[Rfam]
RNA: DUF3577 RNA
RNA sequence: CGAUUGGAUAAACGUGAGCAAUCACGCAAAACUCGCCUGUAAUCCCGGCAUCAUCACACCUGUGAUGUGGCGACUGCUCUUGCUGCUGCGGCAGUGAUUUU
Number, nucleotide and partner (000 for none) at each position: 001c000002g000003a000004u000005u000006g000007g000008a000009u000010a000011a000012a000013c026014g025015u024016g023017a022018g000019c000020a000021a000022u017023c016024a015025c014026g013027c000028a000029a000030a000031a000032c000033u073034c072035g071036c070037c069038u000039g000040u000041a000042a000043u000044c000045c000046c000047g000048g000049c000050a000051u000052c067053a066054u065055c064056a063057c062058a000059c000060c000061u000062g057063u056064g055065a054066u053067g052068u000069g037070g036071c035072g034073a033074c000075u000076g000077c000078u000079c000080u000081u000082g000083c000084u096085g095086c094087u093088g092089c000090g000091g000092c088093a087094g086095u085096g084097a000098u000099u000100u000101u000